[Rfam]
RNA sequence: UUCUUCACCUAUAACACGGAUUUGUGUCCAGAUUUCCUGUCCAUGGUUCCAGUCUGACUGGUUAUUGUGUGAUGGUUGAGAGCUGGGCAGUUCGACUGAAUGGAGCCAUCAUAACUUUGCGUAGAUGGCCUUUACGGUUUCCGGUCGACAGAUCCCAGAUCAAAUGUCUGCGCCUUGUGUUGCGGGUCUUGAGCUCCCACUGGUGAGCUCGGCUUGACAGCUUGGUGUCAGCCGGCGUCAUAUUUCAUGUCUCUUUGCCGAUUGGCCGUUGGCCGCUGAGGUUAGGGAAUAACCAUGACUGCCCACAUCC
Number, nucleotide and partner (000 for none) at each position: 001u000002u000003c000004u000005u000006c000007a000008c000009c000010u000011a000012u000013a000014a000015c000016a000017c000018g155019g154020a153021u152022u151023u150024g149025u148026g088027u087028c086029c085030a084031g083032a000033u081034u080035u079036c078037c075038u074039g073040u072041c071042c069043a068044u000045g065046g000047u000048u000049c061050c060051a000052g058053u057054c000055u000056g000057a053058c052059u000060g050061g049062u000063u000064a000065u045066u000067g000068u043069g042070u000071g041072a040073u039074g038075g037076u000077u000078g036079a035080g034081a033082g000083c031084u030085g029086g028087g027088c026089a000090g000091u000092u000093c147094g146095a145096c144097u143098g000099a000100a000101u000102g132103g131104a000105g129106c128107c127108a000109u000110c000111a000112u000113a000114a000115c000116u000117u000118u000119g000120c000121g000122u000123a000124g000125a000126u000127g107128g106129c105130c000131u103132u102133u000134a000135c000136g000137g000138u000139u000140u000141c000142c000143g097144g096145u095146c094147g093148a025149c024150a023151g022152a021153u020154c019155c018156c000157a000158g000159a000160u000161c000162a000163a000164a000165u000166g229167u000168c227169u000170g000171c000172g226173c225174c224175u000176u000177g221178u000179g000180u000181u000182g000183c000184g000185g214186g213187u212188c211189u000190u000191g210192a209193g208194c207195u206196c205197c203198c202199a000200c000201u000202g198203g197204u000205g196206a195207g194208c193209u192210c191211g188212g187213c186214u185215u000216g000217a000218c000219a000220g000221c177222u000223u000224g174225g173226u172227g168228u000229c166230a000231g000232c000233c000234g303235g302236c301237g299238u298239c297240a296241u295242a000243u000244u000245u000246c000247a000248u000249g000250u288251c287252u286253c285254u284255u000256u000257g282258c281259c280260g000261a000262u000263u000264g274265g273266c272267c271268g000269u000270u000271g267272g266273c265274c264275g000276c000277u000278g000279a000280g259281g258282u257283u000284a254285g253286g252287g251288a250289a000290u000291a000292a000293c000294c000295a241296u240297g239298a238299c237300u000301g236302c235303c234304c000305a000306c000307a000308u000309c000310c000

This 310-nucleotide RNA from Penicillium salamii belongs to the Rfam family "A. fumigatus sRNA Afu_309".
The family has 10 seed sequences and 663 matches in Rfam 15.1.
For this family Rfam cites "Small ncRNA transcriptome analysis from Aspergillus fumigatus suggests a novel mechanism for regulation of protein synthesis" (Jochl et al., Nucleic Acids Res, 2008).
A search with the family's covariance model found it, with a score of 215 bits.